[Rfam]
RNA sequence: GGCGCUUCAGGUGGCCCUGGGCCGAAAGUUUUGACAACAGACCAGAAGCGGGAAGCCGUGGAAGUCAUGUGUGAGACAACGGGUUUGUCGCAACGCCGUGCCUGCAGGCUGACUGGUC
Numbered sequence: 001g002g003c004g005c006u007u008c009a010g011g012u013g014g015c016c017c018u019g020g021g022c023c024g025a026a027a028g029u030u031u032u033g034a035c036a037a038c039a040g041a042c043c044a045g046a047a048g049c050g051g052g053a054a055g056c057c058g059u060g061g062a063a064g065u066c067a068u069g070u071g072u073g074a075g076a077c078a079a080c081g082g083g084u085u086u087g088u089c090g091c092a093a094c095g096c097c098g099u100g101c102c103u104g105c106a107g108g109c110u111g112a113c114u115g116g117u118c
Stems, first nucleotide, its partner, number of pairs: 035090001037088007048059004065078001
Shown here is a 118-nucleotide sequence from Kluyvera cryocrescens, a member of the family "Insertion sequence IS1222 ribosomal frameshifting element". The base pairs follow the family's consensus structure, which is taken from published work. Lineage of the source: Bacteria > Pseudomonadota > Gammaproteobacteria > Enterobacterales > Kluyvera.